[Rfam]
RNA: Small nucleolar RNA snoR8a
RNA sequence: UGGGGUGCAGUGAUUAUAAAACAAUUCCUCGUUCUGAAUGCUGUUGCCACGGCAUGAUAGACCAUUUUACACCCAUAGAAUAUGAGCACC
Numbered sequence: 001u002g003g004g005g006u007g008c009a010g011u012g013a014u015u016a017u018a019a020a021a022c023a024a025u026u027c028c029u030c031g032u033u034c035u036g037a038a039u040g041c042u043g044u045u046g047c048c049a050c051g052g053c054a055u056g057a058u059a060g061a062c063c064a065u066u067u068u069a070c071a072c073c074c075a076u077a078g079a080a081u082a083u084g085a086g087c088a089c090c
Stems, first nucleotide, its partner, number of pairs: 003090002006088002